[Rfam]
RNA sequence: CAGCGUUCUCAGGGCGGGGUGAGAUUCCCCACCGGCGGUGAUGGUGGCGUGGCGACACGACCACACGAGUGCCGCGAGCGCCCAUGUGCCGAUUCAUUUCGGUGCCUGGGGUCAGCAGACCCGGUGAGAUCCCGGGACCGACGGUAAGGUGUCUGGCAACAGGCUCCAGAGUCCGGAUAAAAGAGAGCGCGA
Numbered sequence: 001c002a003g004c005g006u007u008c009u010c011a012g013g014g015c016g017g018g019g020u021g022a023g024a025u026u027c028c029c030c031a032c033c034g035g036c037g038g039u040g041a042u043g044g045u046g047g048c049g050u051g052g053c054g055a056c057a058c059g060a061c062c063a064c065a066c067g068a069g070u071g072c073c074g075c076g077a078g079c080g081c082c083c084a085u086g087u088g089c090c091g092a093u094u095c096a097u098u099u100c101g102g103u104g105c106c107u108g109g110g111g112u113c114a115g116c117a118g119a120c121c122c123g124g125u126g127a128g129a130u131c132c133c134g135g136g137a138c139c140g141a142c143g144g145u146a147a148g149g150u151g152u153c154u155g156g157c158a159a160c161a162g163g164c165u166c167c168a169g170a171g172u173c174c175g176g177a178u179a180a181a182a183g184a185g186a187g188c189g190c191g192a
Stems, first nucleotide, its partner, number of pairs: 003190008017029003033140002035075006078116002120136005142175003